[Rfam]
RNA: Na+ riboswitch aptamer (DUF1646)
Nucleotides: 058
Stems, first nucleotide, its partner, number of pairs: 003030003006025006039058007
Number, partner (000 for none) and nucleotide at each position: 001000g002000g003030u004029u005028g006025g007024a008023c009022a010021a011020a012000u013000u014000u015000u016000a017000u018000a019000a020011u021010u022009u023008g024007u025006u026000u027000u028005c029004a030003a031000g032000c033000a034000a035000u036000u037000u038000u039058a040057g041056u042055u043054u044053c045052u046000g047000g048000g049000g050000u051000g052045g053044g054043a055042a056041g057040c058039u